Shown here is a 217-nucleotide RNA from Ureibacillus endophyticus, a member of the family "T-box leader".
The literature on the family includes a 2000 paper in RNA by Grundy et al., "tRNA determinants for transcription antitermination of the Bacillus subtilis tyrS gene".
By type it is a cis-regulatory leader.
RNA sequence: UUUUAAGCGAUGAUGAAGCCAAGUAAAUGAAUUUACGGUUUAAGAGAGUGCUGCAUAUGGUGUGAGUAGCAUAACCCACUAAGUUCAUUGAACCUACUUCGGAGCUGCUAUGAAAACAUAGCCGUAUUCUCUGCGAUAAUGAGAUUAAUGAGUUGUGCCAUAGUAUUUGGCAAACAAAGGUGGUACCGCGGAAACUACAAGCGUUUUCGUCCUUAGU
Numbered sequence: 001u002u003u004u005a006a007g008c009g010a011u012g013a014u015g016a017a018g019c020c021a022a023g024u025a026a027a028u029g030a031a032u033u034u035a036c037g038g039u040u041u042a043a044g045a046g047a048g049u050g051c052u053g054c055a056u057a058u059g060g061u062g063u064g065a066g067u068a069g070c071a072u073a074a075c076c077c078a079c080u081a082a083g084u085u086c087a088u089u090g091a092a093c094c095u096a097c098u099u100c101g102g103a104g105c106u107g108c109u110a111u112g113a114a115a116a117c118a119u120a121g122c123c124g125u126a127u128u129c130u131c132u133g134c135g136a137u138a139a140u141g142a143g144a145u146u147a148a149u150g151a152g153u154u155g156u157g158c159c160a161u162a163g164u165a166u167u168u169g170g171c172a173a174a175c176a177a178a179g180g181u182g183g184u185a186c187c188g189c190g191g192a193a194a195c196u197a198c199a200a201g202c203g204u205u206u207u208c209g210u211c212c213u214u215a216g217u
Base pairs, nucleotide, nucleotide: 007105008104015100016099017098018097026089027088028087029086030085031084037076038075039074048072049071050070051069052068053067108121109120110119111118112117123135124134125133156172157171158170159169160168162166177214178213179212180211188210189209190208191207192206193205194204195203